[Rfam]
RNA sequence: UGGCGCCCAACGUGGGGCUGGAUACGGAGGAUCCAGUGAGGGAAGAAGAUGUCCCCAAAGGAAUGCGUUCCACAACAAUUUUUCACUCUGGACACGCCGCGGGAACCUGCCUCGGCCACAACUAGAAGUAAGUACAGACGUCUGAUUAUGGGACAAGAAAUAAGCAGGCAUGAACUUUAUGUUAGGCAAUUGCAAGAAGCCUUGAAGACACGAGGAGUAAAGGUUAAAAUAGAGGAUCUAUUAAGAUUCUUUGAAUUCGUUAAGGAAACGUGUCCUU
Dot-bracket structure: .....((....(((........)))...))......(........)......................................(((((......(.((.((.......)).))..)......)).))).......(...((((....)))).)......(((((.................................)).)))......((((((((..(((((.........)))))......))))))))........(((((......)))))
Numbered sequence: 001u002g003g004c005g006c007c008c009a010a011c012g013u014g015g016g017g018c019u020g021g022a023u024a025c026g027g028a029g030g031a032u033c034c035a036g037u038g039a040g041g042g043a044a045g046a047a048g049a050u051g052u053c054c055c056c057a058a059a060g061g062a063a064u065g066c067g068u069u070c071c072a073c074a075a076c077a078a079u080u081u082u083u084c085a086c087u088c089u090g091g092a093c094a095c096g097c098c099g100c101g102g103g104a105a106c107c108u109g110c111c112u113c114g115g116c117c118a119c120a121a122c123u124a125g126a127a128g129u130a131a132g133u134a135c136a137g138a139c140g141u142c143u144g145a146u147u148a149u150g151g152g153a154c155a156a157g158a159a160a161u162a163a164g165c166a167g168g169c170a171u172g173a174a175c176u177u178u179a180u181g182u183u184a185g186g187c188a189a190u191u192g193c194a195a196g197a198a199g200c201c202u203u204g205a206a207g208a209c210a211c212g213a214g215g216a217g218u219a220a221a222g223g224u225u226a227a228a229a230u231a232g233a234g235g236a237u238c239u240a241u242u243a244a245g246a247u248u249c250u251u252u253g254a255a256u257u258c259g260u261u262a263a264g265g266a267a268a269c270g271u272g273u274c275c276u277u
Stems, first nucleotide, its partner, number of pairs: 006030002012025003037046001085129003088125002096117001098114002101111002137154001141152004161204003164200002211253008221239005262277005